Shown here is a 92-nucleotide RNA from Pseudopedobacter sp., a member of the family "Flavo-1 RNA". Pairs were carried over by alignment from the consensus structure, which is taken from published work. The family's RNA type in Rfam is small RNA. Lineage of the source: Bacteria > Pseudomonadati > Sphingobacteriales > Sphingobacteriaceae > Pseudopedobacter.
RNA sequence: AAAUAAACCUGAUGGCAGCGGUAUCCUUUUAUUGGAGCCUUCGACUCCGCUCAGGCUGACAAAAAAAGAUUUAGCAAACAGCAGGACUAUCC
Numbered sequence: 001a002a003a004u005a006a007a008c009c010u011g012a013u014g015g016c017a018g019c020g021g022u023a024u025c026c027u028u029u030u031a032u033u034g035g036a037g038c039c040u041u042c043g044a045c046u047c048c049g050c051u052c053a054g055g056c057u058g059a060c061a062a063a064a065a066a067a068g069a070u071u072u073a074g075c076a077a078a079c080a081g082c083a084g085g086a087c088u089a090u091c092c
Stems, first nucleotide, its partner, number of pairs: 009084003013080002018075002023070003029065002032062003
A search with the family's covariance model found it, with a score of 51 bits.